About this RNA
A member of the RNA family "Histone 3' UTR stem-loop" from Danio rerio, 46 nucleotides long. The family's consensus secondary structure is taken from published work. The organism belongs to Danio, within Eukaryota. Rfam's curators write: The mRNAs of metazoan histone genes lack a poly-A tail. 3' end processing occurs at a site between a highly conserved stem-loop (modelled by this family) and a purine rich region around 20 nts downstream (the histone downstream element, or HDE). The stem-loop is bound by a 31 kDa stem-loop binding protein (SLBP - also termed the histone hairpin binding protein, or HBP).
RNA sequence: CCAAAGGCUCUUUUAAGAGCCACCCACUUGUUCUCUGAAGUGCAGU
Numbered sequence: 001c002c003a004a005a006g007g008c009u010c011u012u013u014u015a016a017g018a019g020c021c022a023c024c025c026a027c028u029u030g031u032u033c034u035c036u037g038a039a040g041u042g043c044a045g046u
Base pairs, nucleotide, nucleotide: 006021007020008019009018010017011016